[Rfam]
This 306-nucleotide RNA sequence from Anolis carolinensis belongs to the Rfam family "RNase MRP".
Nucleotides: 306
Base pairs, nucleotide, nucleotide: 002306003305004304005303006302007301008300009299010298011297014228015227016226017225018224019223022075023074024073025072026071027070028069037053038052039051040050041049080291081290083289084288085287086286095107096106097105098104108125109124110123111122112121113120128199135195136194137193138192139191140190144188145187146186147185156183157182158181159180166176167175168174169173230276231275232274233273234272
Number, partner (000 for none) and nucleotide at each position: 001000g002306g003305a004304c005303g006302u007301u008300c009299u010298g011297a012000a013000g014228a015227c016226c017225u018224g019223c020000u021000c022075u023074c024073u025072a026071g027070g028069c029000u030000a031000c032000c033000a034000g035000c036000a037053g038052a039051g040050g041049a042000c043000g044000c045000u046000a047000g048000u049041u050040c051039c052038u053037c054000c055000c056000g057000g058000g059000u060000c061000u062000c063000g064000a065000a066000c067000c068000c069028g070027c071026c072025u073024a074023g075022g076000g077000g078000a079000a080291a081290g082000u083289c084288c085287c086286c087000g088000g089000a090000c091000c092000c093000c094000g095107g096106g097105c098104a099000g100000a101000g102000a103000g104098u105097g106096c107095c108125g109124c110123g111122c112121g113120c114000c115000u116000c117000c118000c119000g120113g121112u122111g123110c124109g125108c126000a127000a128199c129000a130000a131000c132000c133000u134000c135195u136194c137193u138192c139191g140190c141000g142000a143000g144188c145187u146186c147185g148000c149000g150000c151000c152000u153000u154000u155000c156183c157182c158181g159180c160000c161000a162000a163000g164000a165000a166176g167175c168174c169173c170000c171000c172000a173169g174168g175167g176166c177000c178000g179000a180159g181158c182157g183156g184000g185147c186146g187145a188144g189000c190140g191139c192138g193137g194136g195135a196000g197000g198000g199128g200000c201000g202000c203000c204000u205000u206000g207000u208000c209000a210000c211000g212000c213000u214000c215000a216000u217000a218000g219000u220000u221000a222000c223019g224018c225017a226016g227015g228014u229000a230276g231275u232274g233273c234272g235000c236000a237000u238000g239000c240000g241000c242000g243000g244000c245000g246000u247000c248000u249000c250000c251000c252000c253000c254000c255000a256000a257000a258000g259000g260000a261000g262000g263000c264000g265000u266000c267000g268000c269000c270000a271000u272234c273233g274232c275231a276230c277000c278000a279000a280000c281000a282000c283000a284000a285000c286086g287085g288084g289083g290081c291080u292000c293000a294000u295000u296000c297011u298010c299009g300008g301007g302006a303005c304004g305003u306002c
The match comes from Rfam's covariance-model search (170 bits). For this family Rfam cites "Inventory and analysis of the protein subunits of the ribonucleases P and MRP provides further evidence of homology between the yeast and human enzymes" (Rosenblad et al., Nucleic Acids Res, 2006). The family's RNA type in Rfam is ribozyme. The source organism's lineage runs through Eukaryota, Bilateria, Sarcopterygii, Squamata and Anolis.